[Rfam]
RNA sequence: AGCUUUGCGCAGUGGCAGUAUCGUAGCCAAUGAGGUUAAUCCGAGGCGCGAUUAUUGCUAAUUGAAAACUUUUCCCAAUACCCCGCCAUGACGACUUGAAAUAUAGUCGGCAUUGGCAAUUUUUGACAGUCUCUACGGAGA
Numbered sequence: 001a002g003c004u005u006u007g008c009g010c011a012g013u014g015g016c017a018g019u020a021u022c023g024u025a026g027c028c029a030a031u032g033a034g035g036u037u038a039a040u041c042c043g044a045g046g047c048g049c050g051a052u053u054a055u056u057g058c059u060a061a062u063u064g065a066a067a068a069c070u071u072u073u074c075c076c077a078a079u080a081c082c083c084c085g086c087c088a089u090g091a092c093g094a095c096u097u098g099a100a101a102u103a104u105a106g107u108c109g110g111c112a113u114u115g116g117c118a119a120u121u122u123u124u125g126a127c128a129g130u131c132u133c134u135a136c137g138g139a140g141a
Stems, first nucleotide, its partner, number of pairs: 020052005026047003034042002085117003088113003092109005130141004